[Rfam]
RNA sequence: UUUCUUGGGGUGAUGAAAAAUUCCGGAUGUAAAAUUACAGUAUAACCACCGAGAGCGCAAAACCGUGUGGAUAUUUCCGUUGCCUUCCUUCUGACCUUGAC
Numbered sequence: 001u002u003u004c005u006u007g008g009g010g011u012g013a014u015g016a017a018a019a020a021u022u023c024c025g026g027a028u029g030u031a032a033a034a035u036u037a038c039a040g041u042a043u044a045a046c047c048a049c050c051g052a053g054a055g056c057g058c059a060a061a062a063c064c065g066u067g068u069g070g071a072u073a074u075u076u077c078c079g080u081u082g083c084c085u086u087c088c089u090u091c092u093g094a095c096c097u098u099g100a101c
Base pairs, nucleotide, nucleotide: 003100004099024079025078026077027076